The family of this 63-nucleotide RNA sequence from Marmota monax is "Ma3 gene ribosomal frameshift signal". The organism belongs to Marmota, within Eukaryota. A reference for the family is Wills et al. (2006), "A functional -1 ribosomal frameshift signal in the human paraneoplastic Ma3 gene", J Biol Chem. Rfam 15.1 lists 565 matches to the family in 155 species. By type it is a frameshift element.
RNA sequence: AGGAAAUGAGGAUGGGGCUGGGGAGACUGGCCACCCCGAGUCUGCCCCAGGUGAAUAGGCUCA
Numbered sequence: 001a002g003g004a005a006a007u008g009a010g011g012a013u014g015g016g017g018c019u020g021g022g023g024a025g026a027c028u029g030g031c032c033a034c035c036c037c038g039a040g041u042c043u044g045c046c047c048c049a050g051g052u053g054a055a056u057a058g059g060c061u062c063a
Base pairs, nucleotide, nucleotide: 014047015046016042017041018040019039021037022036023035029061030060031059032058